Source information:
A member of the RNA family "Small nucleolar RNA SNORD58" from Columbina picui, 70 nucleotides long. Clan: SNORD58 clan. It is annotated as a C/D-box small nucleolar RNA. The organism belongs to Columbina, within Eukaryota. The match comes from Rfam's covariance-model search (67 bits).
RNA sequence: CUGCGCUGAUGACUCUCUUAGGACACCUUUGGAUUUAAUUGUGAAAAAAAAAGCGUAAUUCCUGAGCAGC
Numbered sequence: 001c002u003g004c005g006c007u008g009a010u011g012a013c014u015c016u017c018u019u020a021g022g023a024c025a026c027c028u029u030u031g032g033a034u035u036u037a038a039u040u041g042u043g044a045a046a047a048a049a050a051a052a053g054c055g056u057a058a059u060u061c062c063u064g065a066g067c068a069g070c
Stems, first nucleotide, its partner, number of pairs: 001069004